SAM riboswitch aptamer (S box leader): a 114-nucleotide RNA from a Flavobacteriaceae bacterium. Lineage of the source: Bacteria > Pseudomonadati > Flavobacteriia > Flavobacteriales > Flavobacteriaceae.
RNA sequence: AUGUUAUCAAGAAAGGCAGAGGGAUUAGACCCGGUGAAGCCUUAGCAACCCUUUAAUUUUUUAAAGAAGGUGCUAAAUUCUACCAAUGUAUUUUUACAAAAGGAUAGAUAACCC
Number, nucleotide and partner (000 for none) at each position: 001a000002u000003g112004u111005u110006a109007u108008c107009a000010a000011g000012a000013a043014a042015g041016g040017c039018a000019g000020a000021g032022g031023g030024a000025u000026u082027a081028g080029a079030c023031c022032c021033g000034g000035u000036g000037a000038a000039g017040c016041c015042u014043u013044a074045g073046c072047a071048a000049c070050c069051c066052u065053u064054u063055a000056a000057u000058u000059u000060u000061u000062u000063a054064a053065a052066g051067a000068a000069g050070g049071u047072g046073c045074u044075a000076a000077a000078u106079u029080c028081u027082a026083c103084c102085a000086a000087u099088g000089u000090a000091u000092u000093u000094u000095u000096a000097c000098a000099a087100a000101a000102g084103g083104a000105u000106a078107g008108a007109u006110a005111a004112c003113c000114c000